[Rfam]
RNA sequence: AGUUCCCUGAUGUUGAAGAUACUGCAUCAGGAACUGAUUGGAGAGCGAUGAGGCCAUCAGCUCCUGAUGCAAUGCCUUCAGCAUUAAAAUA
Number, nucleotide and partner (000 for none) at each position: 001a000002g000003u000004u000005c000006c000007c000008u000009g000010a000011u000012g000013u000014u000015g000016a000017a000018g000019a000020u000021a000022c000023u071024g070025c069026a068027u067028c000029a065030g064031g063032a062033a000034c060035u059036g058037a057038u000039u056040g055041g054042a000043g000044a000045g000046c000047g000048a000049u000050g000051a000052g000053g000054c041055c040056a039057u037058c036059a035060g034061c000062u032063c031064c030065u029066g000067a027068u026069g025070c024071a023072a000073u000074g000075c000076c000077u000078u000079c000080a000081g000082c000083a000084u000085u000086a000087a000088a000089a000090u000091a000
Rfam assigns this 91-nucleotide RNA sequence from Gymnodraco acuticeps to the family "mir-217 microRNA precursor family". A reference for the family is Lim et al. (2003), "Vertebrate microRNA genes", Science. A search with the family's covariance model found it, with a score of 84 bits. Lineage of the source: Eukaryota > Deuterostomia > Clupeocephala > Ctenosquamata > Gymnodraco.